[Rfam]
Nucleotides: 062
Stems, first nucleotide, its partner, number of pairs: 008041001010039001012036004016031001018029002022060006
Number, partner (000 for none) and nucleotide at each position: 001000u002000a003000g004000g005000g006000g007000u008041g009000a010039c011000a012036g013035g014034g015033u016031u017000u018029g019028g020000a021000a022060c023059c024058c025057u026056u027055c028019c029018c030000u031016g032000a033015a034014c035013c036012u037000a038000g039010g040000g041008u042000a043000a044000c045000u046000c047000u048000g049000a050000a051000a052000g053000u054000g055027g056026a057025g058024g059023g060022g061000a062000a
A member of the RNA family "Gag/pol translational readthrough site" from Sciurus carolinensis, 62 nucleotides long. Rfam links the family to the GO term viral translational readthrough. The literature on the family includes a 1994 paper in EMBO J by Wills et al., "Pseudoknot-dependent read-through of retroviral gag termination codons: importance of sequences in the spacer and loop 2". The base pairs follow the family's consensus structure, which is taken from published work. NCBI's taxonomy places the organism under Eukaryota, Amniota, Euarchontoglires, Rodentia, Sciurus.